[Rfam]
RNA sequence: AGGUCUAUGAUGGCAAGCCAAUGUCACAAAAAGAGGUGAUGACAUGAAAUUCAUGCUCAAGAGGAUUAUGCUGAGGCCC
Numbered sequence: 001a002g003g004u005c006u007a008u009g010a011u012g013g014c015a016a017g018c019c020a021a022u023g024u025c026a027c028a029a030a031a032a033g034a035g036g037u038g039a040u041g042a043c044a045u046g047a048a049a050u051u052c053a054u055g056c057u058c059a060a061g062a063g064g065a066u067u068a069u070g071c072u073g074a075g076g077c078c079c
Stems, first nucleotide, its partner, number of pairs: 002078003005073001008070002
RNA: Small nucleolar RNA SNORD115
Organism: Mesocricetus auratus